[Rfam]
RNA sequence: GGUAAUAAAUGGACAGUGUAAUAAACCCAUUGGACCCGGGGGCGGUACCCGGCGCCUCCACCACAACCAAAACAGCUUUCAUUAUUCUGGUUGUUUUUGUUAUGAAGGGGGCGAAAUAGGAUCGACAAGGGCGUAAAGAUUGCUCUUUUACCCGGCAUUGUACCACCGUUAUCGGGCUACUUAAGUAGUUGCAAAUGACAACUAUGCGGAAGCUCGUCUCGCUGCUUAA
Numbered sequence: 001g002g003u004a005a006u007a008a009a010u011g012g013a014c015a016g017u018g019u020a021a022u023a024a025a026c027c028c029a030u031u032g033g034a035c036c037c038g039g040g041g042g043c044g045g046u047a048c049c050c051g052g053c054g055c056c057u058c059c060a061c062c063a064c065a066a067c068c069a070a071a072a073c074a075g076c077u078u079u080c081a082u083u084a085u086u087c088u089g090g091u092u093g094u095u096u097u098u099g100u101u102a103u104g105a106a107g108g109g110g111g112c113g114a115a116a117u118a119g120g121a122u123c124g125a126c127a128a129g130g131g132c133g134u135a136a137a138g139a140u141u142g143c144u145c146u147u148u149u150a151c152c153c154g155g156c157a158u159u160g161u162a163c164c165a166c167c168g169u170u171a172u173c174g175g176g177c178u179a180c181u182u183a184a185g186u187a188g189u190u191g192c193a194a195a196u197g198a199c200a201a202c203u204a205u206g207c208g209g210a211a212g213c214u215c216g217u218c219u220c221g222c223u224g225c226u227u228a229a
Stems, first nucleotide, its partner, number of pairs: 001152005014142004026131003030128003036052005053113007153168003
The family of this 229-nucleotide RNA sequence from Ditibartonella apis is "permuted transfer-messenger RNA". The match comes from Rfam's covariance-model search (143 bits). The family's RNA type in Rfam is non-coding RNA gene. Its family is annotated with RNA catabolic process in the Gene Ontology. A reference for the family is Williams and Bartel (1996), "Phylogenetic analysis of tmRNA secondary structure", RNA.